Rfam assigns this 359-nucleotide RNA from Martelella endophytica to the family "Alphaproteobacteria transfer-messenger RNA".
RNA sequence: CCCCUUUGCAGAAGCAUUUGAAAGACUUAUAUCAGUCUUGCCGGCUUGACCGGCUAUGGCGAUAAACGGCGAUGCAAUAAGCUCAUUGGACCCGGGGGCGGUACCCGGCGCCUCCACCACAAACAGGCGGAAAGGCCUGCUUGUGAUGGGGGCGAAACAGGAUCGACAAGAGUGUAAAGAUCGACCUUUUGCCCGGCAUGAUACCACCGUUAUCGGGUCAAAAGAGUAGUUGCAAAUGACAACAAAGCUCAGGGUUACGCUGUAGCUGCCUAAUGGCGGUUCCAGAAACCCAAAUUAAGUCCUUGCGGGUAGCACUGUAAGGCGGGGUCCGGAGGCACCUGGCAACAGAAGCCUCCACC
Numbered sequence: 001c002c003c004c005u006u007u008g009c010a011g012a013a014g015c016a017u018u019u020g021a022a023a024g025a026c027u028u029a030u031a032u033c034a035g036u037c038u039u040g041c042c043g044g045c046u047u048g049a050c051c052g053g054c055u056a057u058g059g060c061g062a063u064a065a066a067c068g069g070c071g072a073u074g075c076a077a078u079a080a081g082c083u084c085a086u087u088g089g090a091c092c093c094g095g096g097g098g099c100g101g102u103a104c105c106c107g108g109c110g111c112c113u114c115c116a117c118c119a120c121a122a123a124c125a126g127g128c129g130g131a132a133a134g135g136c137c138u139g140c141u142u143g144u145g146a147u148g149g150g151g152g153c154g155a156a157a158c159a160g161g162a163u164c165g166a167c168a169a170g171a172g173u174g175u176a177a178a179g180a181u182c183g184a185c186c187u188u189u190u191g192c193c194c195g196g197c198a199u200g201a202u203a204c205c206a207c208c209g210u211u212a213u214c215g216g217g218u219c220a221a222a223a224g225a226g227u228a229g230u231u232g233c234a235a236a237u238g239a240c241a242a243c244a245a246a247g248c249u250c251a252g253g254g255u256u257a258c259g260c261u262g263u264a265g266c267u268g269c270c271u272a273a274u275g276g277c278g279g280u281u282c283c284a285g286a287a288a289c290c291c292a293a294a295u296u297a298a299g300u301c302c303u304u305g306c307g308g309g310u311a312g313c314a315c316u317g318u319a320a321g322g323c324g325g326g327g328u329c330c331g332g333a334g335g336c337a338c339c340u341g342g343c344a345a346c347a348g349a350a351g352c353c354u355c356c357a358c359c
Base pairs, nucleotide, nucleotide: 040054041053042052043051044050058193059192060191061190062189068186069185070183071182072181073180082172083171084170086169087168088167092108093107094106095105096104109154110153111152112151113150114149115148194209195208196207199220200219201218204216205215325340326339327338328337331356332355333354334353335352336351
By type it is a non-coding RNA gene. About the family: Bacterial tmRNA, also known as 10Sa RNA or SsrA, is named for its dual tRNA and mRNA-like properties. Its role is to liberate the mRNA from a stalled ribosome. To accomplish this part of the tmRNA is used as a reading frame that ends in a translation stop signal. Its family is annotated with RNA catabolic process in the Gene Ontology.